Background:
Mycobacterium sRNA Ms_AS-1: a 101-nucleotide sequence from Streptomyces luteoverticillatus. It is annotated as a small RNA. The pairing is the family consensus, mapped onto this sequence. On this family, see Li et al., RNA 2013: "Identification of small RNAs in Mycobacterium smegmatis using heterologous Hfq".
[Rfam]
RNA sequence: GGCGGGUUGGAGAUGACCAGGUCGACCUGGCCGUCCAGCUCGGGCAGGGCCGUCAGGGCGUUGCCCUGGUGAAGCUGGACGCGGCUGCCCUCGGUGUUCUU
Numbered sequence: 001g002g003c004g005g006g007u008u009g010g011a012g013a014u015g016a017c018c019a020g021g022u023c024g025a026c027c028u029g030g031c032c033g034u035c036c037a038g039c040u041c042g043g044g045c046a047g048g049g050c051c052g053u054c055a056g057g058g059c060g061u062u063g064c065c066c067u068g069g070u071g072a073a074g075c076u077g078g079a080c081g082c083g084g085c086u087g088c089c090c091u092c093g094g095u096g097u098u099c100u101u
Base pairs, nucleotide, nucleotide: 006039007038008037009036010035011034014033015032018029019028020027021026082093083092084091